[Rfam]
RNA sequence: GCCCUCCAGUUCCCUUUCCCAUCUGAUCUGAACACUGGUCUUGGUGGUCGUAAAAGGAGGAAAAGUAAUACUGAAGCUGGCCACGCAGUGUUGUAGUUUGUUAUAUGGCACGUGGGCUAGUUUCAAACAAAG
Numbered sequence: 001g002c003c004c005u006c007c008a009g010u011u012c013c014c015u016u017u018c019c020c021a022u023c024u025g026a027u028c029u030g031a032a033c034a035c036u037g038g039u040c041u042u043g044g045u046g047g048u049c050g051u052a053a054a055a056g057g058a059g060g061a062a063a064a065g066u067a068a069u070a071c072u073g074a075a076g077c078u079g080g081c082c083a084c085g086c087a088g089u090g091u092u093g094u095a096g097u098u099u100g101u102u103a104u105a106u107g108g109c110a111c112g113u114g115g116g117c118u119a120g121u122u123u124c125a126a127a128c129a130a131a132g
Base pairs, nucleotide, nucleotide: 003060004059005058006057007056019047020046021045022044023043025040026039027038028037077120078119079118080117081116082115092110093109094108
RNA: Small nucleolar RNA SNORA61
Organism: Microcebus murinus